[Rfam]
RNA sequence: GCAGACUCACUCUGUAACUGAACUGCGCUCUUCAGUUCAGGUGCUUUUUCCGUCUGCGAGAGUAACAAUUCACAGGAGUGACAAUUGCCUUCUUUCCUGUAGAAGGCUGUUACUAUUGCUGUUGGGACAUUGGG
Numbered sequence: 001g002c003a004g005a006c007u008c009a010c011u012c013u014g015u016a017a018c019u020g021a022a023c024u025g026c027g028c029u030c031u032u033c034a035g036u037u038c039a040g041g042u043g044c045u046u047u048u049u050c051c052g053u054c055u056g057c058g059a060g061a062g063u064a065a066c067a068a069u070u071c072a073c074a075g076g077a078g079u080g081a082c083a084a085u086u087g088c089c090u091u092c093u094u095u096c097c098u099g100u101a102g103a104a105g106g107c108u109g110u111u112a113c114u115a116u117u118g119c120u121g122u123u124g125g126g127a128c129a130u131u132g133g134g
Stems, first nucleotide, its partner, number of pairs: 001057006014044003018040003023035003069125002072122004078116003083111001087107004
RNA: Small nucleolar RNA SNORA77
Organism: Upupa epops